[Rfam]
RNA sequence: AUUGAAAAAGGCAAACCAACCGCAAGUUUGGGACGCAAAGCCAUGGGUCUUAAGCGUGAGUUCUUUAUACGUAAAGAUUGCCAGGUUGCCGAAU
Numbered sequence: 001a002u003u004g005a006a007a008a009a010g011g012c013a014a015a016c017c018a019a020c021c022g023c024a025a026g027u028u029u030g031g032g033a034c035g036c037a038a039a040g041c042c043a044u045g046g047g048u049c050u051u052a053a054g055c056g057u058g059a060g061u062u063c064u065u066u067a068u069a070c071g072u073a074a075a076g077a078u079u080g081c082c083a084g085g086u087u088g089c090c091g092a093a094u
Stems, first nucleotide, its partner, number of pairs: 001094001003091002011036002016031004021026001034080001039087004044083003047078005

The record is a 94-nucleotide RNA from Candidatus Kuenenia stuttgartensis, which matches "c-di-GMP-I-GGC riboswitch aptamer" in Rfam.